FMN riboswitch aptamer (RFN element): a 115-nucleotide RNA sequence from Lachnospiraceae bacterium TWA4. The RFN element is a highly conserved domain that is found frequently in the 5'-untranslated regions of prokaryotic mRNAs that encode for flavin mononucleotide (FMN) biosynthesis and transport proteins. Pairs were carried over by alignment from the consensus structure, which is taken from published work.
RNA sequence: AGAAAACUUCAGGGAUUGGUGUAAUUCCAUACCGGCGGUAAAGCCCGCGAGCCGAAAGGCAUGAUUCGGAGAAUUUCCGAAGCCGACAGUAGAGUCUGGAUGAGAGAAGUGAUGA
Numbered sequence: 001a002g003a004a005a006a007c008u009u010c011a012g013g014g015a016u017u018g019g020u021g022u023a024a025u026u027c028c029a030u031a032c033c034g035g036c037g038g039u040a041a042a043g044c045c046c047g048c049g050a051g052c053c054g055a056a057a058g059g060c061a062u063g064a065u066u067c068g069g070a071g072a073a074u075u076u077c078c079g080a081a082g083c084c085g086a087c088a089g090u091a092g093a094g095u096c097u098g099g100a101u102g103a104g105a106g107a108a109g110u111g112a113u114g115a
Base pairs, nucleotide, nucleotide: 003113006110007109008108009107010106017029018028019027031095032094033085034084035048036047037046038045043083044082053059065081066080067079068078069077087098088097089096